[Rfam]
RNA sequence: GAGUAAACAUAACUCUUUUAGAAUUUUUUCUAAUAGGAUUUCUGACCCUGGUUGGAAAUCCCAG
Number, nucleotide and partner (000 for none) at each position: 001g000002a000003g000004u000005a000006a000007a000008c000009a000010u000011a000012a000013c000014u000015c000016u000017u000018u000019u000020a000021g000022a000023a000024u000025u000026u000027u000028u000029u000030c000031u000032a000033a000034u000035a000036g061037g060038a059039u058040u057041u056042c055043u054044g053045a052046c051047c000048c000049u000050g000051g046052u045053u044054g043055g042056a041057a040058a039059u038060c037061c036062c000063a000064g000
RNA: U7 small nuclear RNA